[Rfam]
Rfam assigns this 78-nucleotide RNA sequence from Caenorhabditis japonica to the family "mir-242 microRNA precursor family".
Lineage of the source: Eukaryota > Opisthokonta > Eumetazoa > Rhabditomorpha > Caenorhabditis.
RNA sequence: UCACGAAUAUUGCGUAGGCCUUUGCUUCGAAAGAAAUUCUCAAAAUGUUCGCAGCAAUUUCCUCCGCAAUAUUUUUGG
Numbered sequence: 001u002c003a004c005g006a007a008u009a010u011u012g013c014g015u016a017g018g019c020c021u022u023u024g025c026u027u028c029g030a031a032a033g034a035a036a037u038u039c040u041c042a043a044a045a046u047g048u049u050c051g052c053a054g055c056a057a058u059u060u061c062c063u064c065c066g067c068a069a070u071a072u073u074u075u076u077g078g
Stems, first nucleotide, its partner, number of pairs: 003076001005074010016063003022057005028051004
It scores 82 bits against the family's covariance model.